[Rfam]
RNA sequence: GAAGACCUUCGGGGCAAGGUGAAAUUCCUGAUCGGCGGUAAUGGUGGCGUGCCCACACAAGCCCGCGAGCCGUAAGGCAGGACCCGGUGUGAUUCCGGGGCCGACGGUAUAGUCCGGAUGGGAGAAGGUCGGC
Numbered sequence: 001g002a003a004g005a006c007c008u009u010c011g012g013g014g015c016a017a018g019g020u021g022a023a024a025u026u027c028c029u030g031a032u033c034g035g036c037g038g039u040a041a042u043g044g045u046g047g048c049g050u051g052c053c054c055a056c057a058c059a060a061g062c063c064c065g066c067g068a069g070c071c072g073u074a075a076g077g078c079a080g081g082a083c084c085c086g087g088u089g090u091g092a093u094u095c096c097g098g099g100g101c102c103g104a105c106g107g108u109a110u111a112g113u114c115c116g117g118a119u120g121g122g123a124g125a126a127g128g129u130c131g132g133c
Stems, first nucleotide, its partner, number of pairs: 004130007017029003031113002033103002035066004061101002071077001083099005105116003
Dot-bracket structure: ...(((((((......(((.......))).[[((((((......................[[))))....(.....).....(((((.......)))))]])).(((....]]))).......)))))))...
RNA: FMN riboswitch aptamer (RFN element)
Organism: Chloroflexus aurantiacus